[Rfam]
RNA sequence: CUCUCCGAAAUAGCUUUAGGGCUAGCCUCGGAUAUGCGAAUCAUGGAGGUAGAGCACUGUUUGGACUAGGGGCCCUUCUCGGGUUACCGAAUUCAGAUAAACUCCGAAUGCCAUUGAUUUAGAUCCGGGAGUCAGACUGCGAGUGAUAAGAUCCGUAGUCGAAAGGGAAACAGCCCAGACCACCAGCUAAGGUCCCAAAGUAUCUGUUAAGUGGAAAAGGAUGUGGGGUUGCAUAGACAACUAGGAUGUUGGCUCAGAAGCAGCCAUCAUUUAAAGAGUGCGUAAUAGCUCACUAGUCGAGUGACCCUGCGCCGAAAAUUUACCGGGGCUAAACAGAUCACCGAAGCUGUGGAUAGAACCUUAGGGUUCUAUGGUAGGAGAGCGUUCUAAGGGCAUCGAAGCCAGAUCGUAAGGACUGGUGGAGCGCUUAGAAGUGAGAAU
Numbered sequence: 001c002u003c004u005c006c007g008a009a010a011u012a013g014c015u016u017u018a019g020g021g022c023u024a025g026c027c028u029c030g031g032a033u034a035u036g037c038g039a040a041u042c043a044u045g046g047a048g049g050u051a052g053a054g055c056a057c058u059g060u061u062u063g064g065a066c067u068a069g070g071g072g073c074c075c076u077u078c079u080c081g082g083g084u085u086a087c088c089g090a091a092u093u094c095a096g097a098u099a100a101a102c103u104c105c106g107a108a109u110g111c112c113a114u115u116g117a118u119u120u121a122g123a124u125c126c127g128g129g130a131g132u133c134a135g136a137c138u139g140c141g142a143g144u145g146a147u148a149a150g151a152u153c154c155g156u157a158g159u160c161g162a163a164a165g166g167g168a169a170a171c172a173g174c175c176c177a178g179a180c181c182a183c184c185a186g187c188u189a190a191g192g193u194c195c196c197a198a199a200g201u202a203u204c205u206g207u208u209a210a211g212u213g214g215a216a217a218a219g220g221a222u223g224u225g226g227g228g229u230u231g232c233a234u235a236g237a238c239a240a241c242u243a244g245g246a247u248g249u250u251g252g253c254u255c256a257g258a259a260g261c262a263g264c265c266a267u268c269a270u271u272u273a274a275a276g277a278g279u280g281c282g283u284a285a286u287a288g289c290u291c292a293c294u295a296g297u298c299g300a301g302u303g304a305c306c307c308u309g310c311g312c313c314g315a316a317a318a319u320u321u322a323c324c325g326g327g328g329c330u331a332a333a334c335a336g337a338u339c340a341c342c343g344a345a346g347c348u349g350u351g352g353a354u355a356g357a358a359c360c361u362u363a364g365g366g367u368u369c370u371a372u373g374g375u376a377g378g379a380g381a382g383c384g385u386u387c388u389a390a391g392g393g394c395a396u397c398g399a400a401g402c403c404a405g406a407u408c409g410u411a412a413g414g415a416c417u418g419g420u421g422g423a424g425c426g427c428u429u430a431g432a433a434g435u436g437a438g439a440a441u
Stems, first nucleotide, its partner, number of pairs: 001382006011024005026131001027129007037122001038119002041116001043114004052105001053103002058099003062095004069088002071085005135160007143152002165176003180352004185348003191342003200339001202338006219313002223310010240297005246270003251265003271275001276291001280289002353372008383436001385433007393425002401420005407414002

This 441-nucleotide part of an RNA from Trichococcus palustris belongs to the Rfam family "Bacterial large subunit ribosomal RNA".
Its family is annotated with structural constituent of ribosome and ribosome in the Gene Ontology.
The match comes from Rfam's covariance-model search (2976 bits).
The source organism's lineage runs through Bacteria, Bacillati, Bacillota, Carnobacteriaceae and Trichococcus.